The family of this 117-nucleotide RNA sequence from Roseinatronobacter bogoriensis is "ALIL pseudoknot". NCBI's taxonomy places the organism under Bacteria, Pseudomonadota, Alphaproteobacteria, Paracoccaceae, Roseinatronobacter bogoriensis. Rfam 15.1 lists 2,146 matches to the family in 1,098 species. Pairs were carried over by alignment from the consensus structure, which is taken from published work.

[Rfam]
RNA sequence: GGCGUAUUUUGCUCAGGCGGAGCUCGACCGCCCGUUUCGCAAGUGAUUGCUUUCAUUGAAGAUCACAGGGGGGAGUUCGGGGUCGAGCCGAUGUGUAAGAUGUUACAGAUCGCCCCA
Numbered sequence: 001g002g003c004g005u006a007u008u009u010u011g012c013u014c015a016g017g018c019g020g021a022g023c024u025c026g027a028c029c030g031c032c033c034g035u036u037u038c039g040c041a042a043g044u045g046a047u048u049g050c051u052u053u054c055a056u057u058g059a060a061g062a063u064c065a066c067a068g069g070g071g072g073g074a075g076u077u078c079g080g081g082g083u084c085g086a087g088c089c090g091a092u093g094u095g096u097a098a099g100a101u102g103u104u105a106c107a108g109a110u111c112g113c114c115c116c117a
Stems, first nucleotide, its partner, number of pairs: 016032005079116004089112002092109001094107005